This 94-nucleotide RNA sequence from Actinophytocola sp. belongs to the Rfam family "Glycine riboswitch aptamer". The organism belongs to Actinophytocola, within Bacteria.

RNA sequence: CGAGCCGAAGCGGGAGAGCCCUCGUGCACGAAGCGAGGCGCCGAAGGAGCAAGCACCCCGCCAAACUCUCAGGUACCCAUACCGCUUCCGGUCA
Numbered sequence: 001c002g003a004g005c006c007g008a009a010g011c012g013g014g015a016g017a018g019c020c021c022u023c024g025u026g027c028a029c030g031a032a033g034c035g036a037g038g039c040g041c042c043g044a045a046g047g048a049g050c051a052a053g054c055a056c057c058c059c060g061c062c063a064a065a066c067u068c069u070c071a072g073g074u075a076c077c078c079a080u081a082c083c084g085c086u087u088c089c090g091g092u093c094a
Stems, first nucleotide, its partner, number of pairs: 007088007020038004040074003043070002047068003053061002